Annotation
A member of the RNA family "SAM riboswitch aptamer (S box leader)", 108 nucleotides long. For this family Rfam cites "Structure and folding of four putative kink turns identified in structured RNA species in a test of structural prediction rules" (Huang et al., Nucleic Acids Res, 2021). The sequence is in the family's curated seed alignment.
[Rfam]
RNA sequence: GCCUUAUCAAGAGCGGUGGAGGGAUAGGCCCUAUGAAACCCGGCAACCAUAGUGUGAAUACACGUUUGGUGCUAAAUCCUACAGAAUAUUUAUUCUGAAAGAUGAGGA
Numbered sequence: 001g002c003c004u005u006a007u008c009a010a011g012a013g014c015g016g017u018g019g020a021g022g023g024a025u026a027g028g029c030c031c032u033a034u035g036a037a038a039c040c041c042g043g044c045a046a047c048c049a050u051a052g053u054g055u056g057a058a059u060a061c062a063c064g065u066u067u068g069g070u071g072c073u074a075a076a077u078c079c080u081a082c083a084g085a086a087u088a089u090u091u092a093u094u095c096u097g098a099a100a101g102a103u104g105a106g107g108a
Stems, first nucleotide, its partner, number of pairs: 002107007013041001015040003021031003025081004042073004047069002049065002077100001082097006